[Rfam]
RNA sequence: GAGCUGUGAUGUCAUGCGCCUUUUACUGGUGGAUGGGUCCAUCAGAUUAUCUGAUUAUAGAAGAGAUUCUAGGUUAUUCUGAGCUC
Numbered sequence: 001g002a003g004c005u006g007u008g009a010u011g012u013c014a015u016g017c018g019c020c021u022u023u024u025a026c027u028g029g030u031g032g033a034u035g036g037g038u039c040c041a042u043c044a045g046a047u048u049a050u051c052u053g054a055u056u057a058u059a060g061a062a063g064a065g066a067u068u069c070u071a072g073g074u075u076a077u078u079c080u081g082a083g084c085u086c
Base pairs, nucleotide, nucleotide: 001086002085003084004083

Notes:
small nucleolar RNA snoR114: an 86-nucleotide RNA from Helianthus annuus. A reference for the family is Chen and Wu (2009), "Mining small RNA sequencing data: a new approach to identify small nucleolar RNAs in Arabidopsis", Nucleic Acids Res. The family has 24 seed sequences and 1,645 matches in Rfam 15.1. Rfam classes the family as a C/D-box small nucleolar RNA.